[Rfam]
RNA sequence: GCCGGGAUGAGUUACGCCGUCCUGUAGCCCGAGCUUUACGGGGGCAUGGUGGUAUGGAUCGGAUUUCUCCUGCGGGGUCCCAUUGCUGCGUGUCGAUGGCUUGCCCGCUCCGAGCCUAGAUUCGCCAGUGCAUCUUCUCCGAAGGGAGCCGGCGCGCGGAUGUUGAAGAGGGGGAGAAUGCGCGAGGCGGGAAACCGAGCAGCGAAACUCCCCGAUCCGGGCAGCGGAGGGAUAACGGGCCUGAGCGUGGGCUGGGGGAUCAGCCCCUCAGAUCGGAGAUUGGAAACCAUCAUCUUU
Number, nucleotide and partner (000 for none) at each position: 001g045002c044003c043004g023005g022006g021007a020008u019009g018010a000011g000012u000013u000014a000015c000016g000017c000018c009019g008020u007021c006022c005023u004024g000025u000026a000027g000028c042029c041030c040031g039032a000033g000034c000035u000036u000037u000038a000039c031040g030041g029042g028043g003044g002045c001046a000047u000048g297049g296050u000051g294052g293053u292054a290055u289056g288057g287058a000059u284060c283061g000062g281063a280064u279065u277066u276067c275068u000069c000070c271071u270072g269073c000074g267075g266076g265077g264078u263079c258080c257081c256082a000083u254084u000085g252086c251087u000088g248089c247090g246091u000092g000093u000094c000095g000096a000097u000098g241099g240100c239101u238102u237103g236104c000105c231106c230107g000108c229109u228110c227111c226112g225113a000114g222115c221116c220117u219118a000119g217120a216121u215122u214123c162124g161125c000126c159127a000128g157129u156130g155131c154132a000133u152134c151135u000136u000137c148138u147139c146140c145141g000142a000143a000144g000145g140146g139147a138148g137149c000150c000151g134152g133153c000154g131155c130156g129157c128158g000159g126160a000161u124162g123163u168164u000165g000166a000167a000168g163169a000170g212171g211172g210173g209174g208175a000176g000177a000178a000179u206180g000181c204182g203183c202184g000185a000186g000187g000188c197189g196190g195191g000192a000193a000194a000195c190196c189197g188198a000199g000200c000201a000202g183203c182204g181205a000206a179207a000208c174209u173210c172211c171212c170213c000214g122215a121216u120217c119218c000219g117220g116221g115222c114223a000224g000225c112226g111227g110228a109229g108230g106231g105232a000233u000234a000235a000236c103237g102238g101239g100240c099241c098242u000243g000244a000245g000246c090247g089248u088249g000250g000251g086252c085253u000254g083255g000256g081257g080258g079259a000260u000261c000262a000263g078264c077265c076266c075267c074268u000269c072270a071271g070272a000273u000274c000275g067276g066277a065278g000279a064280u063281u062282g000283g060284a059285a000286a000287c057288c056289a055290u054291c000292a053293u052294c051295u000296u049297u048
Plant signal recognition particle RNA: a 297-nucleotide RNA sequence from Chara braunii. A search with the family's covariance model found it, with a score of 132 bits. The base pairs follow the family's consensus structure, which is taken from published work.